[Rfam]
A member of the RNA family "Archaeal RNase P", 288 nucleotides long. Clan: RNaseP clan. Its family is annotated with tRNA processing, ribonuclease P activity and multimeric ribonuclease P complex in the Gene Ontology. It is one of the family's seed sequences. Ribonuclease P (RNase P) is a ubiquitous endoribonuclease, found in archaea, bacteria and eukarya as well as chloroplasts and mitochondria. Its best characterised activity is the generation of mature 5'-ends of tRNAs by cleaving the 5'-leader elements of precursor-tRNAs.

RNA sequence: AGGAGGUGGAGGGCGACCGACGGUCUUAGGCUGAGGAAAGUCCCCUCUCCAUGAGCAAGGCAGCCGCAAGGAAUCCGAGAGGAUUGGCAAUGCAACAGAAACGACACAGCCUCACAAUGGGAAUGAUCGUCUAGGACGUGACGUCUGUGAAGGAUUUGGUGAAACGAGCACCUCUGCCGGAGCAAUUCCAAGUAUCCGCGUAGACCUGCUCGGGAGCGGUAGGUAGGAAGCAUAGCUAAAUGUCGCCGGCCAUUUUGGUUAACAGAAAGGGGCUUACUCCCACCACCU
Numbered sequence: 001a002g003g004a005g006g007u008g009g010a011g012g013g014c015g016a017c018c019g020a021c022g023g024u025c026u027u028a029g030g031c032u033g034a035g036g037a038a039a040g041u042c043c044c045c046u047c048u049c050c051a052u053g054a055g056c057a058a059g060g061c062a063g064c065c066g067c068a069a070g071g072a073a074u075c076c077g078a079g080a081g082g083a084u085u086g087g088c089a090a091u092g093c094a095a096c097a098g099a100a101a102c103g104a105c106a107c108a109g110c111c112u113c114a115c116a117a118u119g120g121g122a123a124u125g126a127u128c129g130u131c132u133a134g135g136a137c138g139u140g141a142c143g144u145c146u147g148u149g150a151a152g153g154a155u156u157u158g159g160u161g162a163a164a165c166g167a168g169c170a171c172c173u174c175u176g177c178c179g180g181a182g183c184a185a186u187u188c189c190a191a192g193u194a195u196c197c198g199c200g201u202a203g204a205c206c207u208g209c210u211c212g213g214g215a216g217c218g219g220u221a222g223g224u225a226g227g228a229a230g231c232a233u234a235g236c237u238a239a240a241u242g243u244c245g246c247c248g249g250c251c252a253u254u255u256u257g258g259u260u261a262a263c264a265g266a267a268a269g270g271g272g273c274u275u276a277c278u279c280c281c282a283c284c285a286c287c288u
Stems, first nucleotide, its partner, number of pairs: 001288003005284005010278002012247006021033005038275003042272005047182004052212005059178005064071002072085005086173002091170003107158003110153002112150005128138002186229004196219004